This 96-nucleotide RNA from Pseudoalteromonas sp. NBT06-2 belongs to the Rfam family "Group II catalytic intron D1-D4-1".
The base pairs follow the family's consensus structure.
RNA sequence: CGCUUAUCUGAGUAAUCUUUUAAGUGAUUAAACAGAAGUCAGCAGACGGCAUAGUAGCCAAAUGCUCAUCGUAAUGGAUGAGACAUGGUGAAGGCC
Numbered sequence: 001c002g003c004u005u006a007u008c009u010g011a012g013u014a015a016u017c018u019u020u021u022a023a024g025u026g027a028u029u030a031a032a033c034a035g036a037a038g039u040c041a042g043c044a045g046a047c048g049g050c051a052u053a054g055u056a057g058c059c060a061a062a063u064g065c066u067c068a069u070c071g072u073a074a075u076g077g078a079u080g081a082g083a084c085a086u087g088g089u090g091a092a093g094g095c096c
Stems, first nucleotide, its partner, number of pairs: 001026002004023003010017002038047003048096003057089003

A search with the family's covariance model found it, with a score of 60 bits.